[Rfam]
RNA: Group II catalytic intron D1-D4-1
RNA sequence: CGAUUUAGUAGUAACAACGAAUAGUGAGAAGUCAGCAGAUGUCAUAGUAGGAAACCAUGUUUCCGAAGGAC
Numbered sequence: 001c002g003a004u005u006u007a008g009u010a011g012u013a014a015c016a017a018c019g020a021a022u023a024g025u026g027a028g029a030a031g032u033c034a035g036c037a038g039a040u041g042u043c044a045u046a047g048u049a050g051g052a053a054a055c056c057a058u059g060u061u062u063c064c065g066a067a068g069g070a071c
Base pairs, nucleotide, nucleotide: 001019002018005014006013007012031040032039033038041071042070043069050064051063052062053061054060055059